This 101-nucleotide RNA sequence from Sapajus apella belongs to the Rfam family "Y RNA". The match comes from Rfam's covariance-model search (71 bits). The organism belongs to Sapajus, within Eukaryota. The base pairs follow the family's consensus structure, which is taken from published work. Rfam classes the family as a non-coding RNA gene.
[Rfam]
RNA sequence: GGCUGGUCCGAGUACAGUGGGGUUUACACUGAUUGAUCACAACCAGUUACAGAUUUCUUUGUUCUUUCUCCACUCCUGCUGCUUCACUUGACUAGCCUUUA
Numbered sequence: 001g002g003c004u005g006g007u008c009c010g011a012g013u014a015c016a017g018u019g020g021g022g023u024u025u026a027c028a029c030u031g032a033u034u035g036a037u038c039a040c041a042a043c044c045a046g047u048u049a050c051a052g053a054u055u056u057c058u059u060u061g062u063u064c065u066u067u068c069u070c071c072a073c074u075c076c077u078g079c080u081g082c083u084u085c086a087c088u089u090g091a092c093u094a095g096c097c098u099u100u101a
Stems, first nucleotide, its partner, number of pairs: 001097008010089002016080006031063003035059002